Group II catalytic intron D1-D4-6: a 227-nucleotide sequence from Roseimaritima ulvae. The pairing is the family consensus, mapped onto this sequence. The literature on the family includes a 2001 paper in Trends Genet by Bonen and Vogel, "The ins and outs of group II introns". The organism belongs to Roseimaritima, within Bacteria. Group II introns are found in rRNA, tRNA and mRNA of organelles in fungi, plants and protists, and also in mRNA in bacteria. It scores 136 bits against the family's covariance model.
[Rfam]
RNA sequence: AAAGUUCUACGAAGAAAGUUUAGCCUACUACUUCGGCCUCCGGCGGAGGUGCGAUGAAGGUAACGACGUCGUGCUGAGCGUCCGUGCAGGAGGGAAACGCAGGCCAGCCAUUGAGCUCCGAAAUCAAUUUAGUCCCGUGUGUCGACCCGGUCUUGCCCAGGGGAAGACAACACUUGAUGCGCCGUCAUUAGGCAAGGCGUAUCGAGGCACGGCGGAGUCUGAGAACC
Dot-bracket structure: .........(((((..(((.[.[[..))).))))).((((..((((.(((((((((..(....)..))))))).)...)..))))....))))..................((.((((((..............(((((((((..(((...........)))...)))....(((((((((((........]].])))))))))))))))))))))))).)......